[Rfam]
RNA sequence: AUACAUUUCAAGUUUGUGCGUGAAUCGAACCCCAACCCCGUCAUAUCAUCUUUGCCACGAAUCUCGAGGUUGAUUGUAACUGCAACGGAUGGUGUUAGAUUCACGCACAAAUUCGUAAUCUGUCU
Numbered sequence: 001a002u003a004c005a006u007u008u009c010a011a012g013u014u015u016g017u018g019c020g021u022g023a024a025u026c027g028a029a030c031c032c033c034a035a036c037c038c039c040g041u042c043a044u045a046u047c048a049u050c051u052u053u054g055c056c057a058c059g060a061a062u063c064u065c066g067a068g069g070u071u072g073a074u075u076g077u078a079a080c081u082g083c084a085a086c087g088g089a090u091g092g093u094g095u096u097a098g099a100u101u102c103a104c105g106c107a108c109a110a111a112u113u114c115g116u117a118a119u120c121u122g123u124c125u
Stems, first nucleotide, its partner, number of pairs: 001123003005119003011113016028096003032092002
MIR403 microRNA precursor family: a 125-nucleotide RNA sequence from Tetracentron sinense. The organism belongs to Tetracentron, within Eukaryota. Pairs were carried over by alignment from the consensus structure, which was predicted with WAR.